[Rfam]
Rfam assigns this 60-nucleotide RNA sequence from Carboxydothermus hydrogenoformans to the family "Fluoride riboswitch aptamer (crcB RNA motif)".
Lineage of the source: Bacteria > Bacillati > Bacillota > Thermoanaerobacteraceae > Carboxydothermus hydrogenoformans.
The family has 289 seed sequences and 2,293 matches in Rfam 15.1.
The base pairs follow the family's consensus structure, which is taken from published work.

RNA sequence: AAAUUUAAUGGCGAUGGGGCUCGCCUAACGCUCAUCUGAGCUAAUAGCUCCUACCGAAAG
Numbered sequence: 001a002a003a004u005u006u007a008a009u010g011g012c013g014a015u016g017g018g019g020c021u022c023g024c025c026u027a028a029c030g031c032u033c034a035u036c037u038g039a040g041c042u043a044a045u046a047g048c049u050c051c052u053a054c055c056g057a058a059a060g
Stems, first nucleotide, its partner, number of pairs: 010025004016051006030041004
Dot-bracket structure: .........[[[[..((((((]]]]....((((....))))....)))))).........